[Rfam]
RNA sequence: GGGAUUGAUGAGUGGUCAAAACUCGCAUUGCUAUGCGAGAAUUGGGUGUCCAGCUUACGACAAUAUGGGCACUCCCAUUUGUUACCGAUCUGAUCCC
Numbered sequence: 001g002g003g004a005u006u007g008a009u010g011a012g013u014g015g016u017c018a019a020a021a022c023u024c025g026c027a028u029u030g031c032u033a034u035g036c037g038a039g040a041a042u043u044g045g046g047u048g049u050c051c052a053g054c055u056u057a058c059g060a061c062a063a064u065a066u067g068g069g070c071a072c073u074c075c076c077a078u079u080u081g082u083u084a085c086c087g088a089u090c091u092g093a094u095c096c097c
Stems, first nucleotide, its partner, number of pairs: 001096003013087004022039005044074005049068002055063001
A member of the RNA family "Small nucleolar RNA Z279/snoR105/snoR108" from Papaver nudicaule, 97 nucleotides long. A search with the family's covariance model found it, with a score of 54 bits. The family is grouped with related families in Rfam's "snoU13 clan". Rfam 15.1 lists 906 matches to the family in 223 species. It is annotated as a C/D-box small nucleolar RNA. Taxonomically the source falls in Papaver (Eukaryota, Viridiplantae, Streptophytina, Papaveroideae). This family includes the plant snoRNAs known as Z279, snoR105 and snoR108. The base pairs follow the family's consensus structure, which was predicted with PFOLD.